Shown here is a 119-nucleotide RNA sequence from Aminivibrio pyruvatiphilus, a member of the family "Molybdenum/Tungsten riboswitch aptamer (Moco RNA motif)".
Rfam 15.1 lists 1,248 matches to the family in 836 species.
A search with the family's covariance model found it, with a score of 69 bits.
RNA sequence: AUCAAUCUUUUCCUCCGAGUCGCCUGUCCUAAAGGAUCUAUCCCACGGGCAGCGACCGUUAGGGUGCAUCCGGAAACAGGUGCGCCUCCCCUUUGGCAAGGAGGACGUUUUUCCGCACA
Numbered sequence: 001a002u003c004a005a006u007c008u009u010u011u012c013c014u015c016c017g018a019g020u021c022g023c024c025u026g027u028c029c030u031a032a033a034g035g036a037u038c039u040a041u042c043c044c045a046c047g048g049g050c051a052g053c054g055a056c057c058g059u060u061a062g063g064g065u066g067c068a069u070c071c072g073g074a075a076a077c078a079g080g081u082g083c084g085c086c087u088c089c090c091c092u093u094u095g096g097c098a099a100g101g102a103g104g105a106c107g108u109u110u111u112u113c114c115g116c117a118c119a
Stems, first nucleotide, its partner, number of pairs: 004112001011105006019056005025051005034043003062087009072077001088096002